[Rfam]
RNA sequence: GCCGCUCUCCGGGUGAUCGCGGCCUUGCUUGCAAGGUCGAGGAAAGUCCGGACACCGCAGGGCAACGUGCCUCUUGAAAAAGGGGGACGGCAGCGUCAAGGCUGCCGGACAGACAGUGCAGCAGAGAGUAUACCGCCGAUGGCCCGCAAGGGAUCAGGUAAGGGUGAAAGGGUGGGGUAAGAGCCCACCGCGUGACGGGUAACCGCCACGGCACGGCAAACCUCGCGUGGUGCAAGACAGAACAGGGGAAGGGUGCCCGCCCGUCGAAUCCCCGGGUAUUAGUCGCAGUCCGUGCAAGCGGACUCCCGCGCAAGCGGGGAGAGAAAUGAUCGCCCAUCCCUGCAAAGGCAGGGGGGACAGAAUCUGGCUUACAGGAGAGCGGCCGCC
Numbered sequence: 001g002c003c004g005c006u007c008u009c010c011g012g013g014u015g016a017u018c019g020c021g022g023c024c025u026u027g028c029u030u031g032c033a034a035g036g037u038c039g040a041g042g043a044a045a046g047u048c049c050g051g052a053c054a055c056c057g058c059a060g061g062g063c064a065a066c067g068u069g070c071c072u073c074u075u076g077a078a079a080a081a082g083g084g085g086g087a088c089g090g091c092a093g094c095g096u097c098a099a100g101g102c103u104g105c106c107g108g109a110c111a112g113a114c115a116g117u118g119c120a121g122c123a124g125a126g127a128g129u130a131u132a133c134c135g136c137c138g139a140u141g142g143c144c145c146g147c148a149a150g151g152g153a154u155c156a157g158g159u160a161a162g163g164g165u166g167a168a169a170g171g172g173u174g175g176g177g178u179a180a181g182a183g184c185c186c187a188c189c190g191c192g193u194g195a196c197g198g199g200u201a202a203c204c205g206c207c208a209c210g211g212c213a214c215g216g217c218a219a220a221c222c223u224c225g226c227g228u229g230g231u232g233c234a235a236g237a238c239a240g241a242a243c244a245g246g247g248g249a250a251g252g253g254u255g256c257c258c259g260c261c262c263g264u265c266g267a268a269u270c271c272c273c274g275g276g277u278a279u280u281a282g283u284c285g286c287a288g289u290c291c292g293u294g295c296a297a298g299c300g301g302a303c304u305c306c307c308g309c310g311c312a313a314g315c316g317g318g319g320a321g322a323g324a325a326a327u328g329a330u331c332g333c334c335c336a337u338c339c340c341u342g343c344a345a346a347g348g349c350a351g352g353g354g355g356g357a358c359a360g361a362a363u364c365u366g367g368c369u370u371a372c373a374g375g376a377g378a379g380c381g382g383c384c385g386c387c
Stems, first nucleotide, its partner, number of pairs: 001383010011372001012334007020039008044370003048367005053232004060262004065228005070085005086110001088107007111223002116221002118217002133163002135159003140156003143152003171189006190212001191210004196205003236284003239279001246273003250269001255265001257263001
This 387-nucleotide RNA sequence from Neoluteolibacter luteus belongs to the Rfam family "Bacterial RNase P class A". The match comes from Rfam's covariance-model search (200 bits). By type it is a ribozyme. Gene Ontology terms of the family: dimeric ribonuclease P complex, tRNA processing and ribonuclease P activity. The organism belongs to Neoluteolibacter, within Bacteria.